[Rfam]
RNA sequence: CCCAGUGGACGGCCACUGAGGUUUAUCUCACUCCGGGACGGCCCG
Numbered sequence: 001c002c003c004a005g006u007g008g009a010c011g012g013c014c015a016c017u018g019a020g021g022u023u024u025a026u027c028u029c030a031c032u033c034c035g036g037g038a039c040g041g042c043c044c045g
Stems, first nucleotide, its partner, number of pairs: 001020001003018006034045004
Dot-bracket structure: (.((((((....)))))).).............((((....))))
RNA: Guanidine-II riboswitch aptamer (mini-ykkC)
Organism: Marinomonas spartinae